[Rfam]
RNA: c-di-AMP riboswitch aptamer (ydaO/yuaA leader)
RNA sequence: CGCCUUGACCUGCCGAAUCCCGCCCGGCACGCCGGACGGGAGCGGGGGAACCGAUGGGGCGGUGUCGAAACCCGCCCCAGGGGCGAAUCGGGCCAACCACGUCGGCCCGUAGUGCCGCUCUUUCGGCACGAGCCCGUCAGCUAACCCCGCAGGCUCGAGAAAGAGAGGCC
Dot-bracket structure: ...........(((...(((((..............)))))((((((....(...........................)(((.....((((((.........))))))..((((..........))))...))).........)))))).)))................
Numbered sequence: 001c002g003c004c005u006u007g008a009c010c011u012g013c014c015g016a017a018u019c020c021c022g023c024c025c026g027g028c029a030c031g032c033c034g035g036a037c038g039g040g041a042g043c044g045g046g047g048g049a050a051c052c053g054a055u056g057g058g059g060c061g062g063u064g065u066c067g068a069a070a071c072c073c074g075c076c077c078c079a080g081g082g083g084c085g086a087a088u089c090g091g092g093c094c095a096a097c098c099a100c101g102u103c104g105g106c107c108c109g110u111a112g113u114g115c116c117g118c119u120c121u122u123u124c125g126g127c128a129c130g131a132g133c134c135c136g137u138c139a140g141c142u143a144a145c146c147c148c149g150c151a152g153g154c155u156c157g158a159g160a161a162a163g164a165g166a167g168g169c170c
Stems, first nucleotide, its partner, number of pairs: 012154003018041005042150006052080001081135003089109006112129004